The record is an 86-nucleotide RNA sequence from Clostridiaceae bacterium 14S0207, which matches "Group II catalytic intron D1-D4-1" in Rfam. The match comes from Rfam's covariance-model search (74 bits). The literature on the family includes a 2001 paper in Trends Genet by Bonen and Vogel, "The ins and outs of group II introns".

RNA sequence: UAACUUACAUAGUGAUAUGUAACUGAACUAUCAGAAGUCAGCAGAGGUCAUAGUACCACACUAUGUGCACGUAGUGCGGGAAGGAC
Numbered sequence: 001u002a003a004c005u006u007a008c009a010u011a012g013u014g015a016u017a018u019g020u021a022a023c024u025g026a027a028c029u030a031u032c033a034g035a036a037g038u039c040a041g042c043a044g045a046g047g048u049c050a051u052a053g054u055a056c057c058a059c060a061c062u063a064u065g066u067g068c069a070c071g072u073a074g075u076g077c078g079g080g081a082a083g084g085a086c
Base pairs, nucleotide, nucleotide: 001025002024005022006021007020008019009018010017011016038045039044047086048085049084056079057078059076060075061074062073063072